[Rfam]
RNA sequence: GGUCUAGGAAGAAAGGCUAAAUUCGUGCCGUCCUGGCACAACGCCUUUCUGACCAACAUCCUUGUUGG
Number, nucleotide and partner (000 for none) at each position: 001g000002g000003u000004c000005u000006a000007g000008g000009a000010a000011g049012a048013a047014a046015g045016g044017c043018u000019a000020a000021a000022u000023u000024c000025g039026u038027g037028c036029c035030g000031u000032c000033c000034u000035g029036g028037c027038a026039c025040a000041a000042c000043g017044c016045c015046u014047u013048u012049c011050u000051g000052a000053c068054c067055a066056a065057c064058a000059u000060c000061c000062u000063u000064g057065u056066u055067g054068g053

A member of the RNA family "Bacillaceae-1 RNA" from Bacillus sp. J14TS2, 68 nucleotides long. It scores 63 bits against the family's covariance model. Taxonomically the source falls in Bacillus (Bacteria, Bacillati, Bacillota, Bacillaceae).